[Rfam]
Nucleotides: 062
Base pairs, nucleotide, nucleotide: 001018002017003016004015006013007012028042029041030040031039032038
Number, partner (000 for none) and nucleotide at each position: 001018g002017g003016g004015g005000a006013g007012c008000u009000a010000c011000g012007g013006c014000g015004c016003c017002c018001c019000a020000u021000a022000c023000g024000a025000a026000a027000c028042g029041g030040a031039c032038c033000u034000g035000a036000u037000a038032g039031g040030u041029c042028c043000a044000a045000a046000g047000c048000a049000a050000c051000g052000g053000a054000a055000g056000a057000c058000a059000g060000a061000g062000a
This 62-nucleotide RNA sequence from Rhodobacter capsulatus belongs to the Rfam family "L2-Alphaproteobacteria ribosomal protein leader". The family's RNA type in Rfam is cis-regulatory leader. On this family, see Eckert and Weinberg, BMC Microbiol 2020: "Discovery of 20 novel ribosomal leader candidates in bacteria and archaea".